[Rfam]
RNA: MIR164 microRNA precursor family
RNA sequence: UGGAGAAGGGGAGCACGUGCAGAGAGGCCCCAGGACUCGACGAGCAAGAGGGAGGCUCUGCACGUGCCCUGCUUCUCCAGC
Numbered sequence: 001u002g003g004a005g006a007a008g009g010g011g012a013g014c015a016c017g018u019g020c021a022g023a024g025a026g027g028c029c030c031c032a033g034g035a036c037u038c039g040a041c042g043a044g045c046a047a048g049a050g051g052g053a054g055g056c057u058c059u060g061c062a063c064g065u066g067c068c069c070u071g072c073u074u075c076u077c078c079a080g081c
Stems, first nucleotide, its partner, number of pairs: 001079008010070002013067012